[Rfam]
RNA sequence: CGGGAUAACCCUCGUUAAGGAACUCGGCAAAAUGGCCCCGUACGUUCGCAAGAAGGGGUGCCCGAGUAAGGUGAAUAGCCUGAAAGGGCCGCAGUGAAGUGGCUCUGGGGACUGUUUACCAAAAACACAGGUCUCUGCUAAGGCGUAGAAGCCGAUGUAUAGGGGCUGAGGCCUGCCCGGUGCUGGAAGGUUAAGGGGAAGGGUUAGGGUGAAUAACCCGAAGCCCUGAACCGAAGCCCCAGUGAACGGCGGCCGUAACUAUAACGGUCCUAAGGUAGCGAAAUUCCUUGUCGGGUAAGUUCCGACCCGCAUGAAAGGCAUAACCACUGGAGCGCUGUCUCAACGAGGGGCCCG
Number, nucleotide and partner (000 for none) at each position: 001c354002g353003g352004g351005a000006u000007a000008a000009c349010c348011c347012u346013c345014g344015u343016u342017a000018a340019g339020g338021a000022a000023c000024u000025c000026g000027g000028c000029a000030a000031a000032a000033u000034g000035g059036c058037c057038c056039c055040g000041u000042a000043c000044g049045u000046u000047c000048g000049c044050a000051a000052g000053a000054a000055g039056g038057g037058g036059u035060g089061c088062c087063c086064g000065a000066g000067u083068a000069a081070g080071g079072u078073g000074a000075a000076u000077a000078g072079c071080c070081u069082g000083a067084a000085a000086g063087g062088g061089c060090c094091g000092c000093a000094g090095u000096g000097a000098a000099g000100u000101g000102g333103c332104u331105c330106u329107g328108g327109g325110g324111a000112c000113u127114g126115u125116u000117u000118a000119c000120c000121a000122a000123a000124a000125a115126c114127a113128c000129a000130g167131g166132u165133c164134u163135c162136u161137g160138c157139u000140a000141a000142g153143g152144c151145g000146u000147a000148g000149a000150a000151g144152c143153c142154g000155a000156u000157g138158u000159a000160u137161a136162g135163g134164g133165g132166c131167u130168g000169a000170g000171g319172c318173c317174u000175g250176c249177c248178c000179g000180g247181u246182g243183c242184u241185g240186g239187a000188a000189g238190g237191u236192u000193a000194a000195g232196g231197g000198g000199a000200a227201g226202g225203g224204u223205u000206a000207g219208g218209g217210u216211g000212a000213a000214u000215a000216a210217c209218c208219c207220g000221a000222a000223g204224c203225c202226c201227u200228g000229a000230a000231c196232c195233g000234a000235a000236g191237c190238c189239c186240c185241a184242g183243u182244g000245a000246a181247c180248g177249g176250c175251g269252g268253c267254c266255g265256u264257a000258a000259c000260u000261a000262u000263a000264a256265c255266g254267g253268u252269c251270c274271u000272a000273a000274g270275g000276u000277a000278g000279c000280g307281a000282a000283a000284u000285u000286c000287c000288u000289u000290g306291u305292c304293g303294g302295g301296u000297a000298a000299g000300u000301u295302c294303c293304g292305a291306c290307c280308c000309g000310c000311a000312u000313g000314a000315a000316a000317g173318g172319c171320a000321u000322a000323a000324c110325c109326a000327c108328u107329g106330g105331a104332g103333c102334g000335c000336u000337g000338u020339c019340u018341c000342a016343a015344c014345g013346a012347g011348g010349g009350g000351c004352c003353c002354g001